[Rfam]
RNA: tRNA
RNA sequence: GGGGGGAUUCCAGAGCGGCCAAAUGGGACGGACUGUAAAUCCGUUGUCUUACGACUUCGAAGGUUCGAAUCCUUCUCCCCCCA
Number, nucleotide and partner (000 for none) at each position: 001g082002g081003g080004g079005g078006g077007a076008u000009u000010c026011c025012a024013g000014a000015g000016c000017g000018g000019c000020c000021a000022a000023a000024u012025g011026g010027g000028a044029c043030g042031g041032a040033c000034u000035g000036u000037a000038a000039a000040u032041c031042c030043g029044u028045u000046g000047u000048c000049u000050u000051a000052c000053g000054a000055c000056u000057u000058c000059g075060a074061a073062g072063g071064u000065u000066c000067g000068a000069a000070u000071c063072c062073u061074u060075c059076u007077c006078c005079c004080c003081c002082c001083a000